[Rfam]
RNA: Group II catalytic intron D1-D4-7
RNA sequence: UAUCCCUUCCACUCGGGAUAAACCUACUAUGACAUGCGUUGGUGGUAACGUCAAAGUAUGAAGCUCAUAGGACAAUGUAGGAAGCAAGGAAUUCCAAUCCUUGACUAACUGCUAGGUUAAGGAAAUUAUGAAGAGCAUAAUGCGAAC
Numbered sequence: 001u002a003u004c005c006c007u008u009c010c011a012c013u014c015g016g017g018a019u020a021a022a023c024c025u026a027c028u029a030u031g032a033c034a035u036g037c038g039u040u041g042g043u044g045g046u047a048a049c050g051u052c053a054a055a056g057u058a059u060g061a062a063g064c065u066c067a068u069a070g071g072a073c074a075a076u077g078u079a080g081g082a083a084g085c086a087a088g089g090a091a092u093u094c095c096a097a098u099c100c101u102u103g104a105c106u107a108a109c110u111g112c113u114a115g116g117u118u119a120a121g122g123a124a125a126u127u128a129u130g131a132a133g134a135g136c137a138u139a140a141u142g143c144g145a146a147c
Base pairs, nucleotide, nucleotide: 001020002019003018004017005016006015028069029068030067031066032065033060034059035058036057037056039054040053041052042051043050044049084095086093087092098123099122100121101120109116110115127146129144130143132141